The record is a 61-nucleotide RNA sequence from Paramixta manurensis, which matches "rydB RNA" in Rfam. Pairs were carried over by alignment from the consensus structure, which was predicted with RNAalifold. From the family's description: This family consists of several bacterial sequences from E. coli, Shigella flexneri and Salmonella species. This RNA gene was discovered by an RNA screen between the ydiC and ydiH in E. coli. Rfam classes the family as a small RNA. A reference for the family is Wassarman et al. (2001), "Identification of novel small RNAs using comparative genomics and microarrays", Genes Dev.
RNA sequence: GCCCCUUCAAGAGCUAAGCCAGUAUGAGUGCCGGAGAUAAGCGCCGGGUGGGGCUGGAUAC
Numbered sequence: 001g002c003c004c005c006u007u008c009a010a011g012a013g014c015u016a017a018g019c020c021a022g023u024a025u026g027a028g029u030g031c032c033g034g035a036g037a038u039a040a041g042c043g044c045c046g047g048g049u050g051g052g053g054c055u056g057g058a059u060a061c
Base pairs, nucleotide, nucleotide: 002053003052004051005050013029014028015027031047032046033045034044036042